Nucleotides: 240
Stems, first nucleotide, its partner, number of pairs: 002238007023217003028212002031210013047196001
Number, partner (000 for none) and nucleotide at each position: 001000c002238c003237c004236a005235u006234a007233a008232g009000u010000a011000a012000u013000a014000a015000a016000a017000g018000g019000u020000c021000c022000g023217u024216u025215u026000a027000a028212g029211u030000c031210c032209c033208u034207u035206a036205a037204c038203u039202u040201u041200a042199u043198u044000u045000a046000a047196a048000g049000u050000a051000u052000c053000g054000g055000u056000u057000u058000g059000a060000u061000c062000c063000u064000u065000u066000c067000u068000g069000u070000u071000a072000a073000u074000u075000u076000a077000a078000u079000c080000c081000a082000a083000a084000a085000a086000a087000a088000c089000g090000u091000u092000a093000a094000a095000u096000u097000u098000u099000g100000a101000u102000c103000c104000u105000u106000u107000a108000a109000c110000u111000u112000a113000u114000u115000u116000a117000a118000u119000u120000a121000g122000u123000a124000u125000u126000a127000g128000u129000u130000u131000g132000a133000u134000c135000c136000a137000u138000u139000a140000a141000c142000u143000u144000a145000u146000u147000u148000a149000a150000u151000c152000a153000g154000u155000a156000u157000u158000a159000a160000u161000u162000u163000u164000g165000u166000c167000c168000u169000u170000a171000a172000u173000c174000u175000u176000a177000a178000c179000u180000u181000u182000u183000u184000u185000u186000u187000u188000g189000a190000a191000u192000u193000a194000a195000a196047u197000u198043a199042a200041u201040a202039a203038a204037g205036u206035u207034a208033a209032g210031g211029a212028u213000c214000u215025a216024a217023a218000g219000a220000u221000a222000c223000c224000u225000u226000u227000u228000a229000u230000u231000a232008u233007u234006u235005a236004u237003g238002g239000a240000a